[Rfam]
RNA sequence: AUGGAAUCAGCUUGCAAAGGAGAAUCCAUUAAUGGGGUUAGGACAGCAAUUGGAGAAGGAGUGAAGGGUCCCCUCUUGGCCUCAUCCUCCUAUCCAGAUUUCCAACAGUUUGUCCGAGCUUUGAGCCAUUAGCAGGGUAUGAAGAGGGAACUCUCUUGAAUGCAAAAGAGGAGCUUUUUGGCUUUAAGGCUUAGCAAACCGGCAAGUCACAAAACGGCAAUGGACUCAGUCACGAGUCA
Dot-bracket structure: .........................................................(((................................)))............((((((.............(.(((.....................................................))).)....)))))).......................(((((......))))).
Numbered sequence: 001a002u003g004g005a006a007u008c009a010g011c012u013u014g015c016a017a018a019g020g021a022g023a024a025u026c027c028a029u030u031a032a033u034g035g036g037g038u039u040a041g042g043a044c045a046g047c048a049a050u051u052g053g054a055g056a057a058g059g060a061g062u063g064a065a066g067g068g069u070c071c072c073c074u075c076u077u078g079g080c081c082u083c084a085u086c087c088u089c090c091u092a093u094c095c096a097g098a099u100u101u102c103c104a105a106c107a108g109u110u111u112g113u114c115c116g117a118g119c120u121u122u123g124a125g126c127c128a129u130u131a132g133c134a135g136g137g138u139a140u141g142a143a144g145a146g147g148g149a150a151c152u153c154u155c156u157u158g159a160a161u162g163c164a165a166a167a168g169a170g171g172a173g174c175u176u177u178u179u180g181g182c183u184u185u186a187a188g189g190c191u192u193a194g195c196a197a198a199c200c201g202g203c204a205a206g207u208c209a210c211a212a213a214a215c216g217g218c219a220a221u222g223g224a225c226u227c228a229g230u231c232a233c234g235a236g237u238c239a
Stems, first nucleotide, its partner, number of pairs: 058095003108199006127189001129187003223238005
Shown here is a 239-nucleotide sequence from Trema orientale, a member of the family "Early nodulin 40". A reference for the family is Gultyaev and Roussis (2007), "Identification of conserved secondary structures and expansion segments in enod40 RNAs reveals new enod40 homologues in plants", Nucleic Acids Res. The source organism's lineage runs through Eukaryota, Streptophytina, Magnoliopsida, Mesangiospermae and Trema. By type it is a non-coding RNA gene. Gene Ontology term of the family: nodulation.